[Rfam]
RNA: Plant signal recognition particle RNA
RNA sequence: GCCGAGCUCAGUAGCGAGAGCUUGUAACCCAAGUGGGGGCAUCCAAGGUGGCGUGGAUGUUGGGUGCGGAAUUUGGUCCUGGACCCGUGGUUGUGCCUAAGCUGGCCUGCCCGUUCCAAGUUGGUAGUGGCUGGUGGGGCUUAGACGAAUGUCUUGGGCCUCCCUGGGCCUAAAGUGGCAGGAAUAGCGUGAGGCUGGCUUCACAGAGCAGCGAUCACUGGCCCGCUUCCAACGGUGGGAGGAUAACAGGCUGCUGCACCAUGAGCCCGCUUAGGCCCAAAGUCCCACUGCAACAGACCGCCAUCUUU
Numbered sequence: 001g002c003c004g005a006g007c008u009c010a011g012u013a014g015c016g017a018g019a020g021c022u023u024g025u026a027a028c029c030c031a032a033g034u035g036g037g038g039g040c041a042u043c044c045a046a047g048g049u050g051g052c053g054u055g056g057a058u059g060u061u062g063g064g065u066g067c068g069g070a071a072u073u074u075g076g077u078c079c080u081g082g083a084c085c086c087g088u089g090g091u092u093g094u095g096c097c098u099a100a101g102c103u104g105g106c107c108u109g110c111c112c113g114u115u116c117c118a119a120g121u122u123g124g125u126a127g128u129g130g131c132u133g134g135u136g137g138g139g140c141u142u143a144g145a146c147g148a149a150u151g152u153c154u155u156g157g158g159c160c161u162c163c164c165u166g167g168g169c170c171u172a173a174a175g176u177g178g179c180a181g182g183a184a185u186a187g188c189g190u191g192a193g194g195c196u197g198g199c200u201u202c203a204c205a206g207a208g209c210a211g212c213g214a215u216c217a218c219u220g221g222c223c224c225g226c227u228u229c230c231a232a233c234g235g236u237g238g239g240a241g242g243a244u245a246a247c248a249g250g251c252u253g254c255u256g257c258a259c260c261a262u263g264a265g266c267c268c269g270c271u272u273a274g275g276c277c278c279a280a281a282g283u284c285c286c287a288c289u290g291c292a293a294c295a296g297a298c299c300g301c302c303a304u305c306u307u308u
Base pairs, nucleotide, nucleotide: 001040002039003038004023005022006021007020008019009018028037029036030035045307046306047305048304049303050302051301052300053299055298058295059294060293061292062291063289064288065287066286068284070283072281073280074279075278076277078275079274081268082267084265086263087262088261090260093259094258095257097256103253104252105251106250107249108248109247111242112241114240115239116238117237118236120233121232122231123230124229126227127226128225129169131167132166133165134164136162137161138160139159140158141157142156143155144153145152146151170175177223178222179221180219181218186215188213189212190211195206196205197204